RNA sequence: GCUAAAAUAGCAAAGUGGUUAAUGCAGAAGGCCUAAGACCUUCCUAUCAAAGGUUCAACUCCCUUUUUUAGCU
Numbered sequence: 001g002c003u004a005a006a007a008u009a010g011c012a013a014a015g016u017g018g019u020u021a022a023u024g025c026a027g028a029a030g031g032c033c034u035a036a037g038a039c040c041u042u043c044c045u046a047u048c049a050a051a052g053g054u055u056c057a058a059c060u061c062c063c064u065u066u067u068u069u070a071g072c073u
Stems, first nucleotide, its partner, number of pairs: 001072007010025003027043005049065002052062002
RNA: tRNA